[Rfam]
RNA: mir-34 microRNA precursor family
Organism: Anhinga anhinga
RNA sequence: GGUUUGUAGGCAGUGUAGUUAGAUGAUUGUAUCCGUUGUUUCGCAAUCACUAACUUCAUUGCCAUCAAAAC
Numbered sequence: 001g002g003u004u005u006g007u008a009g010g011c012a013g014u015g016u017a018g019u020u021a022g023a024u025g026a027u028u029g030u031a032u033c034c035g036u037u038g039u040u041u042c043g044c045a046a047u048c049a050c051u052a053a054c055u056u057c058a059u060u061g062c063c064a065u066c067a068a069a070a071c
Base pairs, nucleotide, nucleotide: 003069004068005067006066009063010062012060013059014058015057017055018054019053020052021051022050024049025048026047027046028045029044030043